[Rfam]
RNA: Enterobacteria greA leader
Organism: Pantoea sp. M_5
RNA sequence: GUCAAUACUACGUCGCUGGGCGGUGCAAAGUAAACGAUGACCCGCAGGGAACUCUGGGGUAAAAUACGUAUCAAAUUGCAAAACUCUUUUCUGGCCUGGAAGCAUCUCCGGGUCAGGAUUCUUU
Numbered sequence: 001g002u003c004a005a006u007a008c009u010a011c012g013u014c015g016c017u018g019g020g021c022g023g024u025g026c027a028a029a030g031u032a033a034a035c036g037a038u039g040a041c042c043c044g045c046a047g048g049g050a051a052c053u054c055u056g057g058g059g060u061a062a063a064a065u066a067c068g069u070a071u072c073a074a075a076u077u078g079c080a081a082a083a084c085u086c087u088u089u090u091c092u093g094g095c096c097u098g099g100a101a102g103c104a105u106c107u108c109c110g111g112g113u114c115a116g117g118a119u120u121c122u123u124u
Base pairs, nucleotide, nucleotide: 001041002040003039005038006037011036012035015031016030042049043048058072059071060070061069090117091116092115093114094113095112096111097110098109099108100107